[Rfam]
RNA sequence: GAAUUUCGCCAGGGUCGACCUCCUCCCCGACCCUGACGGAUACGGUCAACCCCUACCUCCUCCCAGGGGCUGACCAUCGAAACGGCGCCCGCCGGACCUCCUCCCCCGGCGGGCGUUGUUC
Numbered sequence: 001g002a003a004u005u006u007c008g009c010c011a012g013g014g015u016c017g018a019c020c021u022c023c024u025c026c027c028c029g030a031c032c033c034u035g036a037c038g039g040a041u042a043c044g045g046u047c048a049a050c051c052c053c054u055a056c057c058u059c060c061u062c063c064c065a066g067g068g069g070c071u072g073a074c075c076a077u078c079g080a081a082a083c084g085g086c087g088c089c090c091g092c093c094g095g096a097c098c099u100c101c102u103c104c105c106c107c108g109g110c111g112g113g114c115g116u117u118g119u120u121c
Stems, first nucleotide, its partner, number of pairs: 006039003010035007044075005050069004085116011

Shown here is a 121-nucleotide sequence from Mesorhizobium sp. WSM3876, a member of the family "Alphaproteobacterial ar14". It scores 90 bits against the family's covariance model. Rfam classes the family as a small RNA. On this family, see del Val et al., RNA Biol 2012: "A survey of sRNA families in alpha-proteobacteria". The pairing is the family consensus, mapped onto this sequence.